[Rfam]
The family of this 50-nucleotide RNA sequence from Paracoccus alkenifer is "Guanidine-II riboswitch aptamer (mini-ykkC)". The match comes from Rfam's covariance-model search (38 bits). A reference for the family is Sherlock et al. (2017), "Biochemical Validation of a Second Guanidine Riboswitch Class in Bacteria", Biochemistry. The base pairs follow the family's consensus structure, which is taken from published work. Lineage of the source: Bacteria > Pseudomonadati > Pseudomonadota > Rhodobacterales > Paracoccus.
RNA sequence: GCUGAAGGACGACCUUCGCCCCAACCGGGAAAGCAGUCGGGACGGCCCGC
Numbered sequence: 001g002c003u004g005a006a007g008g009a010c011g012a013c014c015u016u017c018g019c020c021c022c023a024a025c026c027g028g029g030a031a032a033g034c035a036g037u038c039g040g041g042a043c044g045g046c047c048c049g050c
Stems, first nucleotide, its partner, number of pairs: 001020001003018006038049004